[Rfam]
RNA sequence: UGGAUGCGGCAGCAAAGACCUGAACUGAGGAAGAACGUCUACCACUCUACCCCUUUUCAUUUUUAUACUGCUUUGAAG
Number, nucleotide and partner (000 for none) at each position: 001u000002g000003g000004a000005u000006g000007c000008g072009g071010c070011a069012g068013c000014a066015a000016a064017g063018a062019c000020c000021u059022g058023a057024a056025c000026u000027g053028a000029g052030g051031a000032a048033g047034a046035a000036c000037g000038u000039c000040u000041a000042c000043c000044a000045c000046u034047c033048u032049a000050c000051c030052c029053c027054u000055u000056u024057u023058c022059a021060u000061u000062u018063u017064u016065a000066u014067a000068c012069u011070g010071c009072u008073u000074u000075g000076a000077a000078g000